RNA sequence: AAUAACCUAACUAUGAAACUUGGGCUGGGUCAAGGGGAAUUGUUCUUACAUCUCCCCCCCCAGGGGAAAGGUAUCAAUAUGCCACACAAAAAUAAAAACAGCCGAGAACUAGAAGAAAAAGCACCUAGACCUAACAAAAUUAAUGUGAAUACCCAAAAUGGUAGUCCUUUUAUUCACUUCCAUAGCA
Numbered sequence: 001a002a003u004a005a006c007c008u009a010a011c012u013a014u015g016a017a018a019c020u021u022g023g024g025c026u027g028g029g030u031c032a033a034g035g036g037g038a039a040u041u042g043u044u045c046u047u048a049c050a051u052c053u054c055c056c057c058c059c060c061c062a063g064g065g066g067a068a069a070g071g072u073a074u075c076a077a078u079a080u081g082c083c084a085c086a087c088a089a090a091a092a093u094a095a096a097a098a099c100a101g102c103c104g105a106g107a108a109c110u111a112g113a114a115g116a117a118a119a120a121g122c123a124c125c126u127a128g129a130c131c132u133a134a135c136a137a138a139a140u141u142a143a144u145g146u147g148a149a150u151a152c153c154c155a156a157a158a159u160g161g162u163a164g165u166c167c168u169u170u171u172a173u174u175c176a177c178u179u180c181c182a183u184a185g186c187a
Base pairs, nucleotide, nucleotide: 144184145183146182147181148179149178155174156173